[Rfam]
RNA: L2-Alphaproteobacteria ribosomal protein leader
RNA sequence: GGGGACCUUCGGGGCCCUACAACCACGGCGACUUCGGUCGCUGACAAGCAAAACGGAAGACAGCAA
Numbered sequence: 001g002g003g004g005a006c007c008u009u010c011g012g013g014g015c016c017c018u019a020c021a022a023c024c025a026c027g028g029c030g031a032c033u034u035c036g037g038u039c040g041c042u043g044a045c046a047a048g049c050a051a052a053a054c055g056g057a058a059g060a061c062a063g064c065a066a
Stems, first nucleotide, its partner, number of pairs: 001018004006014003027042006